RNA sequence: GGUGGUUCUCAGGUGAUGCACCUUGGAAUAGGGCUCCCUCCUCUCUGGUUCUGCGGUGCAUCACCCAAGCAACCAUC
Numbered sequence: 001g002g003u004g005g006u007u008c009u010c011a012g013g014u015g016a017u018g019c020a021c022c023u024u025g026g027a028a029u030a031g032g033g034c035u036c037c038c039u040c041c042u043c044u045c046u047g048g049u050u051c052u053g054c055g056g057u058g059c060a061u062c063a064c065c066c067a068a069g070c071a072a073c074c075a076u077c
Stems, first nucleotide, its partner, number of pairs: 002076002005073003008069002012065006019058004025052005031046003
Shown here is a 77-nucleotide RNA sequence from Pipistrellus kuhlii, a member of the family "mir-9223 microRNA precursor family". The family's consensus secondary structure was predicted with RNAalifold. Rfam 15.1 lists 14,641 matches to the family in 28 species. Gene Ontology terms of the family: miRNA-mediated post-transcriptional gene silencing and RISC complex.